[Rfam]
RNA sequence: UAUUUAAAAAGUAAAAAUACCGUUCGGUUGAUAGGCCGAACGAUAAUUAACACUGAUCGCAUCCUUUUCCUUCGAGAUAUCUUGUUUUCUGAAUUUCCUG
Numbered sequence: 001u002a003u004u005u006a007a008a009a010a011g012u013a014a015a016a017a018u019a020c021c022g023u024u025c026g027g028u029u030g031a032u033a034g035g036c037c038g039a040a041c042g043a044u045a046a047u048u049a050a051c052a053c054u055g056a057u058c059g060c061a062u063c064c065u066u067u068u069c070c071u072u073c074g075a076g077a078u079a080u081c082u083u084g085u086u087u088u089c090u091g092a093a094u095u096u097c098c099u100g
Base pairs, nucleotide, nucleotide: 004092005091006090008088009087010086011085022041023040024039025038026037027036042057044055045054047052066077067076068075069074
Dot-bracket structure: ...(((.((((..........((((((........))))))(.((.(....).)).)........((((....)))).......)))).)))........

This 100-nucleotide RNA sequence from Bombilactobacillus mellifer belongs to the Rfam family "azaaromatic riboswitch aptamer (yjdF RNA)". It scores 46 bits against the family's covariance model. The family's consensus secondary structure is taken from published work.